[Rfam]
Nucleotides: 133
Base pairs, nucleotide, nucleotide: 003061004060005059006058007057016043017042018041019040020039072126075123084112085111086110088108089107090106092103093102094101
Number, partner (000 for none) and nucleotide at each position: 001000a002000a003061g004060c005059u006058a007057g008000c009000u010000a011000a012000u013000g014000a015000a016043u017042c018041u019040g020039c021000u022000c023000a024000c025000c026000u027000g028000a029000a030000c031000g032000u033000g034000u035000u036000u037000c038000u039020g040019c041018a042017g043016a044000a045000a046000u047000u048000u049000u050000u051000u052000a053000a054000c055000a056000g057007c058006u059005g060004g061003c062000a063000a064000u065000a066000a067000g068000u069000a070000a071000a072126g073000c074000c075123g076000u077000g078000u079000u080000a081000u082000a083000a084112g085111c086110c087000c088108u089107a090106a091000g092103g093102a094101c095000a096000u097000c098000a099000a100000a101094g102093u103092c104000u105000u106090u107089u108088a109000a110086g111085g112084u113000c114000c115000c116000u117000g118000g119000a120000a121000a122000u123075u124000a125000a126072u127000u128000a129000a130000a131000a132000a133000u